[Rfam]
RNA sequence: AGAAGAUUGAAGAGAUUUGACCCUAGUACGAGAGGACCGGGUUGAACAAACCACUGGUGUAGCUGUUGUUCUGCCAAGAGCAUCGCAGCGUAGCUAAGUUUGGAAAGGAUAAACGCUGAAAGCAUCUAAGCGUGAAGCCAACUCUAAGAUGAAUCUUCUCUAAGCUCUCUAGUAGACUACUAGUUUGAUAGGCUGGGUGUGUAAGAAAUGAAAGUUUCUUAGCUGACCAGUACUAAUAGAGCGUUUG
Number, nucleotide and partner (000 for none) at each position: 001a159002g158003a157004a156005g155006a154007u153008u152009g000010a000011a145012g144013a143014g142015a000016u000017u045018u044019g043020a042021c041022c040023c039024u000025a000026g000027u000028a000029c000030g000031a000032g000033a000034g000035g000036a000037c000038c000039g023040g022041g021042u020043u019044g018045a017046a000047c102048a101049a100050a099051c098052c000053a000054c000055u096056g095057g094058u000059g000060u000061a000062g089063c088064u087065g086066u085067u082068g081069u080070u079071c078072u077073g000074c000075c000076a000077a072078g071079a070080g069081c068082a067083u000084c000085g066086c065087a064088g063089c062090g000091u000092a000093g000094c057095u056096a055097a000098g051099u050100u049101u048102g047103g000104a000105a000106a000107g139108g138109a000110u000111a000112a000113a133114c132115g131116c130117u129118g000119a000120a000121a000122g000123c000124a000125u000126c000127u000128a000129a117130g116131c115132g114133u113134g000135a000136a000137g000138c108139c107140a000141a000142c014143u013144c012145u011146a000147a000148g000149a000150u000151g000152a008153a007154u006155c005156u004157u003158c002159u001160c000161u000162a000163a000164g242165c241166u240167c239168u000169c183170u182171a181172g180173u000174a000175g000176a000177c000178u000179a000180c172181u171182a170183g169184u000185u000186u000187g000188a000189u235190a234191g233192g231193c230194u229195g228196g227197g000198u000199g223200u000201g000202u000203a000204a000205g218206a217207a216208a215209u214210g000211a000212a000213a000214g209215u208216u207217u206218c205219u000220u000221a000222g000223c199224u000225g000226a000227c196228c195229a194230g193231u192232a000233c191234u190235a189236a000237u000238a000239g167240a166241g165242c164243g000244u000245u000246u000247g000
The family of this 247-nucleotide part of an RNA from Campylobacter sp. MIT 12-5580 is "Bacterial large subunit ribosomal RNA". The organism belongs to Campylobacter, within Bacteria.